[Rfam]
RNA sequence: GGAUAUUAUAUCCUCCGAGCCAACCUGUCCUAAAGGAGCAACCCAUGGCAGGCUGGCCUGGACCGCCGGUCCACGGGGUAUACCGGGAAACGGGUAUGCCUUCCAGGUUUUGAAAAGGAGGGGGUUAAUGAGAGGA
Numbered sequence: 001g002g003a004u005a006u007u008a009u010a011u012c013c014u015c016c017g018a019g020c021c022a023a024c025c026u027g028u029c030c031u032a033a034a035g036g037a038g039c040a041a042c043c044c045a046u047g048g049c050a051g052g053c054u055g056g057c058c059u060g061g062a063c064c065g066c067c068g069g070u071c072c073a074c075g076g077g078g079u080a081u082a083c084c085g086g087g088a089a090a091c092g093g094g095u096a097u098g099c100c101u102u103c104c105a106g107g108u109u110u111u112g113a114a115a116a117g118g119a120g121g122g123g124g125u126u127a128a129u130g131a132g133a134g135g136a
Stems, first nucleotide, its partner, number of pairs: 006127001011122006019057004024052003029048002035043002059073005076101009086091001102113002
RNA: Molybdenum/Tungsten riboswitch aptamer (Moco RNA motif)
Organism: Neomoorella thermoacetica